The record is an 80-nucleotide RNA from Winogradskya consettensis, which matches "c-di-GMP-I-GGC riboswitch aptamer" in Rfam. The match comes from Rfam's covariance-model search (62 bits). Gene Ontology term of the family: cyclic-di-GMP binding. Lineage of the source: Bacteria > Bacillati > Micromonosporales > Micromonosporaceae > Winogradskya.
RNA sequence: UCCGAGAAAGGCAAACCCGCCGUAAGGCGGGGACGCAAAGCCAGGGACCUCCCGAGCGGGAGGCGGCCCAGCCGCCGAAG
Numbered sequence: 001u002c003c004g005a006g007a008a009a010g011g012c013a014a015a016c017c018c019g020c021c022g023u024a025a026g027g028c029g030g031g032g033a034c035g036c037a038a039a040g041c042c043a044g045g046g047a048c049c050u051c052c053c054g055a056g057c058g059g060g061a062g063g064c065g066g067c068c069c070a071g072c073c074g075c076c077g078a079a080g
Stems, first nucleotide, its partner, number of pairs: 001080001003077002011036002016031006034066001040072002044069003048063002